[Rfam]
RNA: Plant signal recognition particle RNA
Organism: Brachypodium distachyon
RNA sequence: ACCGAGCCGAGUAGCGCUAGCUUGUAACCCGAGCGGGGGAAAUAAAGGGUGGUGUUUGAAUGCCUGGUGGUUGCGCAUUGGGCCUGGGCCUCGGUAGGCACGGUUUGCGGCCCGCCCGUCCCAAGAUGCGGUAGCUGCGCCUGGGGGCCCGAGCGAAGGCUCGAUGGGCCUCACGGCCGCGUAGUUUGGCGGGGAACGCGUGAGGCUGGCUUCACAGAGCAGCGAGUAGUACCGCCCGCUUCCAACGGUUGGAGGAUAACGGGCUGCUGUGCUCCAGGCCCGCUCUGGCCCUUGUGCCUGUCCUGGCAGACCACCAUCUUU
Numbered sequence: 001a002c003c004g005a006g007c008c009g010a011g012u013a014g015c016g017c018u019a020g021c022u023u024g025u026a027a028c029c030c031g032a033g034c035g036g037g038g039g040a041a042a043u044a045a046a047g048g049g050u051g052g053u054g055u056u057u058g059a060a061u062g063c064c065u066g067g068u069g070g071u072u073g074c075g076c077a078u079u080g081g082g083c084c085u086g087g088g089c090c091u092c093g094g095u096a097g098g099c100a101c102g103g104u105u106u107g108c109g110g111c112c113c114g115c116c117c118g119u120c121c122c123a124a125g126a127u128g129c130g131g132u133a134g135c136u137g138c139g140c141c142u143g144g145g146g147g148c149c150c151g152a153g154c155g156a157a158g159g160c161u162c163g164a165u166g167g168g169c170c171u172c173a174c175g176g177c178c179g180c181g182u183a184g185u186u187u188g189g190c191g192g193g194g195a196a197c198g199c200g201u202g203a204g205g206c207u208g209g210c211u212u213c214a215c216a217g218a219g220c221a222g223c224g225a226g227u228a229g230u231a232c233c234g235c236c237c238g239c240u241u242c243c244a245a246c247g248g249u250u251g252g253a254g255g256a257u258a259a260c261g262g263g264c265u266g267c268u269g270u271g272c273u274c275c276a277g278g279c280c281c282g283c284u285c286u287g288g289c290c291c292u293u294g295u296g297c298c299u300g301u302c303c304u305g306g307c308a309g310a311c312c313a314c315c316a317u318c319u320u321u
Stems, first nucleotide, its partner, number of pairs: 002039002004023004009018001028037003045321010061308004066302005074296004081290004086281006093275002096273001098272005107267008116255002119253003123249001125246001127244002131242001133240003137180003141176002144172008152161003181186001188236005197226001199224003206217003